[Rfam]
RNA: mir-27 microRNA precursor family
RNA sequence: UAGGGGGGCAGAACUUAACCACUGUGAACAUUAAAUUCUAGCACACUGUUCACAGGUGGUUAAGUCCUGCUACCACA
Numbered sequence: 001u002a003g004g005g006g007g008g009c010a011g012a013a014c015u016u017a018a019c020c021a022c023u024g025u026g027a028a029c030a031u032u033a034a035a036u037u038c039u040a041g042c043a044c045a046c047u048g049u050u051c052a053c054a055g056g057u058g059g060u061u062a063a064g065u066c067c068u069g070c071u072a073c074c075a076c077a
Stems, first nucleotide, its partner, number of pairs: 011067001013065008024053007